RNA sequence: CGUAUCAUUGUGCCUCGCUCGCUUGCGCGGGGCGAUAAGUCCUAGUGAAAGGGAUGAUAUGAC
Numbered sequence: 001c002g003u004a005u006c007a008u009u010g011u012g013c014c015u016c017g018c019u020c021g022c023u024u025g026c027g028c029g030g031g032g033c034g035a036u037a038a039g040u041c042c043u044a045g046u047g048a049a050a051g052g053g054a055u056g057a058u059a060u061g062a063c
Base pairs, nucleotide, nucleotide: 001061002060003059004058005057006056007055008054009053011034012033013032014031015030016029017028018027041052042051